[Rfam]
RNA sequence: UUGCCUUAAACUAAUGAGUAAGGAAAACAAAGCGAGUGGUGAGAGCUGCUCGCAGCGCAUACUCAAAAUUAGCGCAGUAAUUUUUGAAGGGGCAUAGGCUGGCCGAUGCGUUGACGCUGCUUACUUUGCAGAACUCGCUCGUGCGGGCCUCCCAC
Numbered sequence: 001u002u003g004c005c006u007u008a009a010a011c012u013a014a015u016g017a018g019u020a021a022g023g024a025a026a027a028c029a030a031a032g033c034g035a036g037u038g039g040u041g042a043g044a045g046c047u048g049c050u051c052g053c054a055g056c057g058c059a060u061a062c063u064c065a066a067a068a069u070u071a072g073c074g075c076a077g078u079a080a081u082u083u084u085u086g087a088a089g090g091g092g093c094a095u096a097g098g099c100u101g102g103c104c105g106a107u108g109c110g111u112u113g114a115c116g117c118u119g120c121u122u123a124c125u126u127u128g129c130a131g132a133a134c135u136c137g138c139u140c141g142u143g144c145g146g147g148c149c150u151c152c153c154a155c
Stems, first nucleotide, its partner, number of pairs: 004023005032053008055075004089155001091153002096150005102144001104141002108138003117131004

A member of the RNA family "U12 minor spliceosomal RNA" from Rosa chinensis, 155 nucleotides long.
It is annotated as a spliceosomal small nuclear RNA.
Clan: U2 clan.
The base pairs follow the family's consensus structure.
Gene Ontology terms of the family: U12 snRNP, mRNA branch site recognition and pre-mRNA branch point binding.